[Rfam]
RNA sequence: CAGGAGUCCGGGUGCAAAUCCCGGAUGGCGAGCCCGGCCGCUGACCUGCCGGGGUAAC
Numbered sequence: 001c002a003g004g005a006g007u008c009c010g011g012g013u014g015c016a017a018a019u020c021c022c023g024g025a026u027g028g029c030g031a032g033c034c035c036g037g038c039c040g041c042u043g044a045c046c047u048g049c050c051g052g053g054g055u056a057a058c
Stems, first nucleotide, its partner, number of pairs: 006026006013018001033053006

The family of this 58-nucleotide sequence from Cereibacter sphaeroides is "sul1 RNA". The family's RNA type in Rfam is riboswitch. NCBI's taxonomy places the organism under Bacteria, Pseudomonadota, Rhodobacterales, Cereibacter, Cereibacter sphaeroides. Pairs were carried over by alignment from the consensus structure, which is taken from published work.